[Rfam]
RNA sequence: GAUGAUGAUUGUCACGUGUCAUAUUCUGAUUGGUCAAUGAAAACAACAAUGCAUUUCAUCUUAUAUGGAGUUGACAUUCAAUCAGAACAUGACACGUGAUAGUCAUCAUU
Numbered sequence: 001g002a003u004g005a006u007g008a009u010u011g012u013c014a015c016g017u018g019u020c021a022u023a024u025u026c027u028g029a030u031u032g033g034u035c036a037a038u039g040a041a042a043a044c045a046a047c048a049a050u051g052c053a054u055u056u057c058a059u060c061u062u063a064u065a066u067g068g069a070g071u072u073g074a075c076a077u078u079c080a081a082u083c084a085g086a087a088c089a090u091g092a093c094a095c096g097u098g099a100u101a102g103u104c105a106u107c108a109u110u
Stems, first nucleotide, its partner, number of pairs: 011100004016095002020091003024087004029082005

Rfam assigns this 110-nucleotide sequence from Glycine max to the family "MIR1520 microRNA precursor family". The organism belongs to Glycine subgen. Soja, within Eukaryota. Gene Ontology terms of the family: miRNA-mediated post-transcriptional gene silencing and RISC complex. The sequence is in the family's curated seed alignment. The family has 18 seed sequences and 1,934 matches in Rfam 15.1. Clan: MIR1520 microRNA precursor clan.